[Rfam]
RNA sequence: GAAUAGAAAACGGGGAGCUUGCAUAAGCAGGCUGAGAGGAGACUGGCAGCGUUUCGACCCAUAACCUGAUUUGGAUAAUGCCAACGUAGGGAUGAUUUACAGAGAAAAA
Numbered sequence: 001g002a003a004u005a006g007a008a009a010a011c012g013g014g015g016a017g018c019u020u021g022c023a024u025a026a027g028c029a030g031g032c033u034g035a036g037a038g039g040a041g042a043c044u045g046g047c048a049g050c051g052u053u054u055c056g057a058c059c060c061a062u063a064a065c066c067u068g069a070u071u072u073g074g075a076u077a078a079u080g081c082c083a084a085c086g087u088a089g090g091g092a093u094g095a096u097u098u099a100c101a102g103a104g105a106a107a108a109a
Base pairs, nucleotide, nucleotide: 006097007096010093012060013059014058017032018031019030020029021028039055040054041053042052043051065090066089067088068087071084072083073082074081
The family of this 109-nucleotide RNA sequence from Blautia faecicola is "TPP riboswitch aptamer (THI element)". The match comes from Rfam's covariance-model search (58 bits).